[Rfam]
RNA sequence: UGCGUUUUUCGCCCAGGCGGAGCUCGACCGCCGCUUCAAGUCCUGAGGCACUUUGUCGAUCAACACCGGGAAACCUUCGGGGUCGAGCCGAUCUGCAAAGUCUUGCAGGUCGCCCCG
Dot-bracket structure: ...............(((((.......))))).............................................(((((......((.(((((((....))))))).)))))))
Numbered sequence: 001u002g003c004g005u006u007u008u009u010c011g012c013c014c015a016g017g018c019g020g021a022g023c024u025c026g027a028c029c030g031c032c033g034c035u036u037c038a039a040g041u042c043c044u045g046a047g048g049c050a051c052u053u054u055g056u057c058g059a060u061c062a063a064c065a066c067c068g069g070g071a072a073a074c075c076u077u078c079g080g081g082g083u084c085g086a087g088c089c090g091a092u093c094u095g096c097a098a099a100g101u102c103u104u105g106c107a108g109g110u111c112g113c114c115c116c117g
Stems, first nucleotide, its partner, number of pairs: 016032005078117005089112002092109007

The family of this 117-nucleotide RNA sequence from Chitinimonas sp. BJB300 is "ALIL pseudoknot".
The family's consensus secondary structure is taken from published work.
Lineage of the source: Bacteria > Pseudomonadota > Neisseriales > Chitinibacteraceae > Chitinimonas.
The family's RNA type in Rfam is cis-regulatory element.